[Rfam]
Rfam assigns this 129-nucleotide RNA from Ursus maritimus to the family "ODC internal ribosome entry site (IRES)". The family's consensus secondary structure was predicted with mfold.

RNA sequence: AUCUCCACUGCUGCACCGAGGGCACACGCAUCUUCAGUGGGACCUGGAAUUCCCGGGAAUUGCCUUUGUGAAAUGCUGGCCAUAAUUUCUCUAAUUUCCAUCUGUUUUCCAUGGAAACACCAAGAAACC
Dot-bracket structure: .....(...((....(((((((((.(............((((........)))).....))))))))).)....))..)......(((((.....((.(..............).)).....)))))..

NCBI's taxonomy places the organism under Eukaryota, Chordata, Vertebrata, Mammalia, Ursus. A reference for the family is Pyronnet et al. (2005), "Alternative splicing facilitates internal ribosome entry on the ornithine decarboxylase mRNA", Cell Mol Life Sci.